Source information:
The family of this 89-nucleotide RNA sequence from Pyrus ussuriensis x Pyrus communis is "Small nucleolar RNA snoR26". The literature on the family includes a 2001 paper in RNA by Brown et al., "Multiple snoRNA gene clusters from Arabidopsis".

[Rfam]
RNA sequence: GGAGCAUCGGUGAUGAUUUCUUAGAAACGUUAUCCUUGCACUAUGAUUGCCUGUGAAGAAAGUAUGGGGAAUAUUAAUCUGAGAUGCUU
Numbered sequence: 001g002g003a004g005c006a007u008c009g010g011u012g013a014u015g016a017u018u019u020c021u022u023a024g025a026a027a028c029g030u031u032a033u034c035c036u037u038g039c040a041c042u043a044u045g046a047u048u049g050c051c052u053g054u055g056a057a058g059a060a061a062g063u064a065u066g067g068g069g070a071a072u073a074u075u076a077a078u079c080u081g082a083g084a085u086g087c088u089u
Stems, first nucleotide, its partner, number of pairs: 002089007

Pairs were carried over by alignment from the consensus structure, which was predicted with WAR. Taxonomically the source falls in Pyrus (Eukaryota, Spermatophyta, Magnoliopsida, Rosaceae).